RNA sequence: GAAGCCUACAUGGCAAAGUUUAGCCAACAGCCAUUAGCGAGUCUUGGGCUCUUUGGGGUGACCCAAGGAGUCAAGCGUAGACAGUUAACUAGUGGGUCAUAAACCGAGAGAGGUUGAAGCUAGUAGCUCCGAAAUCCCAGUGGGUAAAGUCGAUAUGUUGGUCUGUAUAGAAGACAGCACUGAUAUAAUCAUUACUGGCAAGAGGAUAUCAGUUUACCCGGAGUCGUAGAGCA
Numbered sequence: 001g002a003a004g005c006c007u008a009c010a011u012g013g014c015a016a017a018g019u020u021u022a023g024c025c026a027a028c029a030g031c032c033a034u035u036a037g038c039g040a041g042u043c044u045u046g047g048g049c050u051c052u053u054u055g056g057g058g059u060g061a062c063c064c065a066a067g068g069a070g071u072c073a074a075g076c077g078u079a080g081a082c083a084g085u086u087a088a089c090u091a092g093u094g095g096g097u098c099a100u101a102a103a104c105c106g107a108g109a110g111a112g113g114u115u116g117a118a119g120c121u122a123g124u125a126g127c128u129c130c131g132a133a134a135u136c137c138c139a140g141u142g143g144g145u146a147a148a149g150u151c152g153a154u155a156u157g158u159u160g161g162u163c164u165g166u167a168u169a170g171a172a173g174a175c176a177g178c179a180c181u182g183a184u185a186u187a188a189u190c191a192u193u194a195c196u197g198g199c200a201a202g203a204g205g206a207u208a209u210c211a212g213u214u215u216a217c218c219c220g221g222a223g224u225c226g227u228a229g230a231g232c233a
Base pairs, nucleotide, nucleotide: 010034011033012032013031014030018028019027020026021201023199024198035087036086037085038084041082042081043080044079045077046076047072048071049070050069051068052067053066054065055064056063057062123227126224127223128222129221130220131219143218144217145216146215147214148213149175150174151173154169155168156167157166180212181211182210183209184208185207186206189203190202